[Rfam]
RNA sequence: AGGCUGCAAGACGACGUGAAUGGGCCAAGAUCUAUUCGUAGAUCAGGGUCCAGGAAAGUCCCCGGGCCGUUUCUGCAGGGAUGCAAACUUGGAAACGAGUUAAGCUUCACUAGCUGUGUGAGUCCAUUCCCUUGUGGAUGGGCUGAGACGAGGUGGAGCCUAUGGACUCAAGCCGGAAGCAAUUAAUGGCCGACAUCAACAGUUAUUCACGUGGUCCAGUUUAACUGGGUUGACUGAACGGGGCUUAUGAUCUUGCAGUC
Numbered sequence: 001a002g003g004c005u006g007c008a009a010g011a012c013g014a015c016g017u018g019a020a021u022g023g024g025c026c027a028a029g030a031u032c033u034a035u036u037c038g039u040a041g042a043u044c045a046g047g048g049u050c051c052a053g054g055a056a057a058g059u060c061c062c063c064g065g066g067c068c069g070u071u072u073c074u075g076c077a078g079g080g081a082u083g084c085a086a087a088c089u090u091g092g093a094a095a096c097g098a099g100u101u102a103a104g105c106u107u108c109a110c111u112a113g114c115u116g117u118g119u120g121a122g123u124c125c126a127u128u129c130c131c132u133u134g135u136g137g138a139u140g141g142g143c144u145g146a147g148a149c150g151a152g153g154u155g156g157a158g159c160c161u162a163u164g165g166a167c168u169c170a171a172g173c174c175g176g177a178a179g180c181a182a183u184u185a186a187u188g189g190c191c192g193a194c195a196u197c198a199a200c201a202g203u204u205a206u207u208c209a210c211g212u213g214g215u216c217c218a219g220u221u222u223a224a225c226u227g228g229g230u231u232g233a234c235u236g237a238a239c240g241g242g243g244c245u246u247a248u249g250a251u252c253u254u255g256c257a258g259u260c
Stems, first nucleotide, its partner, number of pairs: 002260010014212006022051004029044006056246003060243004074085004086101006153163004214230006